[Rfam]
RNA sequence: AAUAAAUACAAUUUUACACUAUUUACGUUCAACGUUUAACCGUUCGUUUUAUUUGAAAUUUUUUUAUAAUUAAUAUUUUUAUUGUUAUUAGAUGAUAAAACAUGAAAAAUACUUUAUGUGUGACUAAAUAUUUUCAAAUUUUUCACAAUUUUUUUAAAUAAGACGGACGGUCAAACGUUGGGCACGGAUAUCCAUGGCUGCACUUAUU
Numbered sequence: 001a002a003u004a005a006a007u008a009c010a011a012u013u014u015u016a017c018a019c020u021a022u023u024u025a026c027g028u029u030c031a032a033c034g035u036u037u038a039a040c041c042g043u044u045c046g047u048u049u050u051a052u053u054u055g056a057a058a059u060u061u062u063u064u065u066a067u068a069a070u071u072a073a074u075a076u077u078u079u080u081a082u083u084g085u086u087a088u089u090a091g092a093u094g095a096u097a098a099a100a101c102a103u104g105a106a107a108a109a110u111a112c113u114u115u116a117u118g119u120g121u122g123a124c125u126a127a128a129u130a131u132u133u134u135c136a137a138a139u140u141u142u143u144c145a146c147a148a149u150u151u152u153u154u155u156a157a158a159u160a161a162g163a164c165g166g167a168c169g170g171u172c173a174a175a176c177g178u179u180g181g182g183c184a185c186g187g188a189u190a191u192c193c194a195u196g197g198c199u200g201c202a203c204u205u206a207u208u
Base pairs, nucleotide, nucleotide: 028182029181030180031179032178033177035175036174037173039171040170041169042168043167044166045165046164047163048162049161050160051159052158